[Rfam]
RNA sequence: GGAAGAGCGUCUCAUCCGGUGAUGGGACCGGACUUCAAAUCCGGGAGGGGCCGCGAGCCGGUCCUUGGUGGGUUCGACUCCCACUCUCUUCC
Numbered sequence: 001g002g003a004a005g006a007g008c009g010u011c012u013c014a015u016c017c018g019g020u021g022a023u024g025g026g027a028c029c030g031g032a033c034u035u036c037a038a039a040u041c042c043g044g045g046a047g048g049g050g051c052c053g054c055g056a057g058c059c060g061g062u063c064c065u066u067g068g069u070g071g072g073u074u075c076g077a078c079u080c081c082c083a084c085u086c087u088c089u090u091c092c
Stems, first nucleotide, its partner, number of pairs: 001092007009084001011026006028044005047065005069083004
Selenocysteine transfer RNA: a 92-nucleotide RNA from Ancylobacter novellus. The organism belongs to Ancylobacter novellus, within Bacteria. A search with the family's covariance model found it, with a score of 76 bits.